[Rfam]
A member of the RNA family "Small nucleolar RNA Z103" from Panicum miliaceum, 104 nucleotides long. Rfam classes the family as a C/D-box small nucleolar RNA. The base pairs follow the family's consensus structure, which was predicted with PFOLD.
RNA sequence: AUGGAAGUGAGGAUCCUUUCCCCAGCUGAUCGACUAUGAUUAUACUGUGCGCACAUGUAAUCCCUCCUCCGCGGAGGAGGAUUCAAGCCAGAAAUCUGAUCCAU
Number, nucleotide and partner (000 for none) at each position: 001a104002u103003g102004g101005a100006a000007g000008u000009g000010a000011g000012g000013a000014u000015c000016c000017u000018u000019u000020c000021c000022c000023c000024a000025g000026c000027u000028g000029a000030u000031c000032g000033a000034c000035u000036a000037u000038g000039a000040u000041u000042a000043u000044a000045c000046u000047g000048u000049g000050c000051g000052c000053a000054c000055a000056u000057g000058u000059a000060a000061u000062c000063c000064c000065u000066c000067c000068u000069c000070c000071g000072c000073g000074g000075a000076g000077g000078a000079g000080g000081a000082u000083u000084c000085a000086a000087g000088c000089c000090a000091g000092a000093a000094a000095u000096c000097u000098g000099a000100u005101c004102c003103a002104u001